Shown here is a 72-nucleotide RNA sequence from Streptomyces alboflavus, a member of the family "ASpks TB sRNA". The match comes from Rfam's covariance-model search (68 bits). Rfam classes the family as an antisense RNA.

RNA sequence: CUUCACGGAGCCGAGCAACAGGGGCUCACCGGCGCGGUCCUGGCCGUAGGUGGCGAGGAGCGCCUGGGCCUC
Numbered sequence: 001c002u003u004c005a006c007g008g009a010g011c012c013g014a015g016c017a018a019c020a021g022g023g024g025c026u027c028a029c030c031g032g033c034g035c036g037g038u039c040c041u042g043g044c045c046g047u048a049g050g051u052g053g054c055g056a057g058g059a060g061c062g063c064c065u066g067g068g069c070c071u072c
Base pairs, nucleotide, nucleotide: 014026015025016024029067030066035062036061040057041056044053045052046051